[Rfam]
RNA: mir-172 microRNA precursor family
RNA sequence: GUAUCUGCUGAUGCAGCAUCAUCAAGAUUCUCAUAUAAUCUUACAAUUAAUUAAUUAAUUAAUUAAUUAAGAAAAGGGUUAUUUGUGAAUCUCGAUGAUGCUGCAUCUGCAAACAC
Numbered sequence: 001g002u003a004u005c006u007g008c009u010g011a012u013g014c015a016g017c018a019u020c021a022u023c024a025a026g027a028u029u030c031u032c033a034u035a036u037a038a039u040c041u042u043a044c045a046a047u048u049a050a051u052u053a054a055u056u057a058a059u060u061a062a063u064u065a066a067u068u069a070a071g072a073a074a075a076g077g078g079u080u081a082u083u084u085g086u087g088a089a090u091c092u093c094g095a096u097g098a099u100g101c102u103g104c105a106u107c108u109g110c111a112a113a114c115a116c
Stems, first nucleotide, its partner, number of pairs: 010107014025092006032085002